[Rfam]
RNA sequence: ACAUACGGAUUGGCAAUCCGUAUGGGUCAUAUGGAUUGGCAAUCCAUAUGACCCAUACGGAUUGCCAAUUCGUAGGUUCGUAA
Numbered sequence: 001a002c003a004u005a006c007g008g009a010u011u012g013g014c015a016a017u018c019c020g021u022a023u024g025g026g027u028c029a030u031a032u033g034g035a036u037u038g039g040c041a042a043u044c045c046a047u048a049u050g051a052c053c054c055a056u057a058c059g060g061a062u063u064g065c066c067a068a069u070u071c072g073u074a075g076g077u078u079c080g081u082a083a
Stems, first nucleotide, its partner, number of pairs: 001077002004074022027051011
Dot-bracket structure: ((.((((((((((((((((((((((.(((((((((((...))))))))))).)))))))))))))))))))))).))......
Rfam assigns this 83-nucleotide RNA from Glycine soja to the family "MIR4380 microRNA precursor family". It scores 83 bits against the family's covariance model. Lineage of the source: Eukaryota > Magnoliopsida > rosids > Fabaceae > Glycine subgen. Soja.